Shown here is a 107-nucleotide RNA sequence from Christiangramia flava, a member of the family "Bacteroidales small SRP". For this family Rfam cites "A high-resolution transcriptome map identifies small RNA regulation of metabolism in the gut microbe Bacteroides thetaiotaomicron" (Ryan et al., Nat Commun, 2020). A search with the family's covariance model found it, with a score of 101 bits. Lineage of the source: Bacteria > Pseudomonadati > Flavobacteriales > Christiangramia > Christiangramia flava. Gene Ontology terms of the family: SRP-dependent cotranslational protein targeting to membrane, signal sequence recognition and signal recognition particle, plasma membrane targeting. Clan: SRP clan.

Nucleotides: 107
Base pairs, nucleotide, nucleotide: 009102010101011100012099013098014097015096017092018091019090020089021088022086023085024083025082
Number, partner (000 for none) and nucleotide at each position: 001000u002000u003000u004000g005000c006000a007000g008000c009102g010101g011100c012099a013098a014097g015096u016000c017092c018091c019090a020089c021088a022086c023085a024083a025082c026000c027000a028000g029000c030000u031000c032000c033000u034000g035000c036000u037000g038000a039000a040000u041000c042000c043000c044000c045000c046000a047000g048000g049000g050000c051000g052000g053000g054000a055000a056000c057000g058000c059000a060000g061000c062000a063000a064000g065000g066000g067000u068000a069000g070000g071000c072000g073000g074000u075000c076000g077000u078000a079000g080000c081000g082025g083024u084000g085023u086022g087000a088021u089020g090019u091018g092017g093000g094000u095000c096015g097014c098013u099012u100011g101010c102009c103000a104000u105000u106000u107000u